Annotation
Shown here is a 96-nucleotide RNA sequence from Actinoplanes derwentensis, a member of the family "Bacterial small signal recognition particle RNA".
[Rfam]
RNA sequence: CGUAGCCCCUCGUGUGGCGUCAUCCUGUGAACCUCCCCAGGGCCGGAAGGCAGCAAGGAUAAGCGGGCUCUGGCGGGUGCACGAGGGGUCCUUACU
Numbered sequence: 001c002g003u004a005g006c007c008c009c010u011c012g013u014g015u016g017g018c019g020u021c022a023u024c025c026u027g028u029g030a031a032c033c034u035c036c037c038c039a040g041g042g043c044c045g046g047a048a049g050g051c052a053g054c055a056a057g058g059a060u061a062a063g064c065g066g067g068c069u070c071u072g073g074c075g076g077g078u079g080c081a082c083g084a085g086g087g088g089u090c091c092u093u094a095c096u
Base pairs, nucleotide, nucleotide: 005089006088007087008086009085010084011083012082013081014080015077018075019074020073021072022071024067025066026065027064028063034059035058036057042051043050044049

By type it is a non-coding RNA gene. Its Rfam clan is "SRP clan".